[Rfam]
RNA sequence: AAAAAGGAGCAAUAAUCCCCUUCUUGUUCUAUCAAGAGGGCGAUAUUGCUCCUUUUU
Numbered sequence: 001a002a003a004a005a006g007g008a009g010c011a012a013u014a015a016u017c018c019c020c021u022u023c024u025u026g027u028u029c030u031a032u033c034a035a036g037a038g039g040g041c042g043a044u045a046u047u048g049c050u051c052c053u054u055u056u057u
Stems, first nucleotide, its partner, number of pairs: 003055012019040001021038006

Plastid-psbA-4 3UTR RNA: a 57-nucleotide RNA sequence from Dipelta floribunda.
Taxonomically the source falls in Dipelta (Eukaryota, Viridiplantae, Magnoliopsida, eudicotyledons).
From the family's description: Plastid psbA-4 is a non-coding RNA (ncRNA) present in plastids. It was identified in inverted repeat sequences in the 3 prime untranslate region (3UTR) of photosystem II quinone-binding protein (psbA).
For this family Rfam cites "Retrograde signaling in plants: A critical review focusing on the GUN pathway and beyond" (Richter et al., Plant Commun, 2023).
Rfam classes the family as a cis-regulatory element.
The family is grouped with related families in Rfam's "Plastid-psbA 3UTR RNA clan".